Annotation
Rfam assigns this 165-nucleotide RNA sequence from Drosophila melanogaster to the family "mir-989 microRNA precursor family". The base pairs follow the family's consensus structure, which was predicted with RNAalifold. NCBI's taxonomy places the organism under Eukaryota, Pancrustacea, Hexapoda, Eumetabola, Sophophora.

RNA sequence: AUUUUGGGAAUCGGCCACUACCUUGCAGUCACGUGAUGAAAAGACACAGGUGACACUGAUCCGGAUUUGGUAGUUGACAAAUCCUCCAUGCCGAGAUUAGUUUCAUUUUGCGUCUUUUGAAUUCGAAUAGUUCAUGUGAUGUGACGUAGUGGAACAUACCUGAAA
Numbered sequence: 001a002u003u004u005u006g007g008g009a010a011u012c013g014g015c016c017a018c019u020a021c022c023u024u025g026c027a028g029u030c031a032c033g034u035g036a037u038g039a040a041a042a043g044a045c046a047c048a049g050g051u052g053a054c055a056c057u058g059a060u061c062c063g064g065a066u067u068u069g070g071u072a073g074u075u076g077a078c079a080a081a082u083c084c085u086c087c088a089u090g091c092c093g094a095g096a097u098u099a100g101u102u103u104c105a106u107u108u109u110g111c112g113u114c115u116u117u118u119g120a121a122u123u124c125g126a127a128u129a130g131u132u133c134a135u136g137u138g139a140u141g142u143g144a145c146g147u148a149g150u151g152g153a154a155c156a157u158a159c160c161u162g163a164a165a
Base pairs, nucleotide, nucleotide: 003164004163005162006161007160008159010157015152016151017150018149019148020147021146023144024143025142026141029139030138031137032136034134035133036132